[Rfam]
RNA sequence: GGAGACGUGGCCGAGUGGCCGAAGGCACAUCCCUGCUAAGGAUGCAUACGGCUUAUACCUGUAUCGUGGGUUCGAAUCCCACCGUCUCCG
Numbered sequence: 001g002g003a004g005a006c007g008u009g010g011c012c013g014a015g016u017g018g019c020c021g022a023a024g025g026c027a028c029a030u031c032c033c034u035g036c037u038a039a040g041g042a043u044g045c046a047u048a049c050g051g052c053u054u055a056u057a058c059c060u061g062u063a064u065c066g067u068g069g070g071u072u073c074g075a076a077u078c079c080c081a082c083c084g085u086c087u088c089c090g
Stems, first nucleotide, its partner, number of pairs: 001089007010026003028044005066082005
RNA: tRNA